[Rfam]
RNA sequence: GGGGGCGACCGGUUUCGACGGGGAUACUAAAGUCAGCGGUGCAUGUCGAGCUCUCGGGGUCUCGUAAAUCCUCCGGGAAAAUGUAACUGCCAAUCAAGAACUGGCACUCGCAGCUUAAUUAACUGCGACGUUCCUCCACCUGAGGCCCGCGGGGGUGGUCGGAGCGCGAUACAGCGGGCUGGUCCAAGGCUGGUGCUCAGCGGCUGAGGACGAGACAAUACUGGGCUAGUGGCCAGUCUAAGCCAGCCGAUGGGCGUGGGUGGCUGCGAAACUAAAACGAUCGGCUACACAUGUAGAUCCGUUGUGCUGAAGGUCUUCGGACAGGGGUUCAACUCCCCUCGCCUCCACCA
Numbered sequence: 001g002g003g004g005g006c007g008a009c010c011g012g013u014u015u016c017g018a019c020g021g022g023g024a025u026a027c028u029a030a031a032g033u034c035a036g037c038g039g040u041g042c043a044u045g046u047c048g049a050g051c052u053c054u055c056g057g058g059g060u061c062u063c064g065u066a067a068a069u070c071c072u073c074c075g076g077g078a079a080a081a082u083g084u085a086a087c088u089g090c091c092a093a094u095c096a097a098g099a100a101c102u103g104g105c106a107c108u109c110g111c112a113g114c115u116u117a118a119u120u121a122a123c124u125g126c127g128a129c130g131u132u133c134c135u136c137c138a139c140c141u142g143a144g145g146c147c148c149g150c151g152g153g154g155g156u157g158g159u160c161g162g163a164g165c166g167c168g169a170u171a172c173a174g175c176g177g178g179c180u181g182g183u184c185c186a187a188g189g190c191u192g193g194u195g196c197u198c199a200g201c202g203g204c205u206g207a208g209g210a211c212g213a214g215a216c217a218a219u220a221c222u223g224g225g226c227u228a229g230u231g232g233c234c235a236g237u238c239u240a241a242g243c244c245a246g247c248c249g250a251u252g253g254g255c256g257u258g259g260g261u262g263g264c265u266g267c268g269a270a271a272c273u274a275a276a277a278c279g280a281u282c283g284g285c286u287a288c289a290c291a292u293g294u295a296g297a298u299c300c301g302u303u304g305u306g307c308u309g310a311a312g313g314u315c316u317u318c319g320g321a322c323a324g325g326g327g328u329u330c331a332a333c334u335c336c337c338c339u340c341g342c343c344u345c346c347a348c349c350a
Stems, first nucleotide, its partner, number of pairs: 001346007019319007028310001031308003034304006042293005047064004053077007108128006129166006136158006145179006182211004188205003195226005229267007237259002242255003246285004323339005